[Rfam]
RNA sequence: CUUACCGGAGGCUGUAUGGACCCUGAUCCCACCCCUCUCCCGCGAUGGAGAAUCUCUUUCCGGUAAGCCAGCCCUCGCUGUCUCACCGGUGAUGUGAGGCAGCAACGUCAU
Numbered sequence: 001c002u003u004a005c006c007g008g009a010g011g012c013u014g015u016a017u018g019g020a021c022c023c024u025g026a027u028c029c030c031a032c033c034c035c036u037c038u039c040c041c042g043c044g045a046u047g048g049a050g051a052a053u054c055u056c057u058u059u060c061c062g063g064u065a066a067g068c069c070a071g072c073c074c075u076c077g078c079u080g081u082c083u084c085a086c087c088g089g090u091g092a093u094g095u096g097a098g099g100c101a102g103c104a105a106c107g108u109c110a111u
Base pairs, nucleotide, nucleotide: 001067002066003065004064005063006062007061008060009059010058011057017031018030019029036051037050038049039048040047077103078102079101080100081099082098083097084096085095086094
Dot-bracket structure: (((((((((((.....(((.........)))....(((((......))))).....))))))))))).........((((((((((.......))))))))))........

Overview
The record is a 111-nucleotide sequence from Enterobacter sp. 638, which matches "Magnesium riboswitch aptamer (Magnesium responsive RNA element)" in Rfam. The literature on the family includes a 2006 paper in Cell by Cromie et al., "An RNA sensor for intracellular Mg(2+)". The Magnesium sensor RNA element is a cis-regulatory element that regulates the expression of the magnesium transporter protein MgtA. It is located in the 5' UTR of this gene. The element adopts different structures depending on the presence or absence of Mg2+, this has the affect of regulating whether transcription reads through the mgtA coding region or stops within the 5' UTR.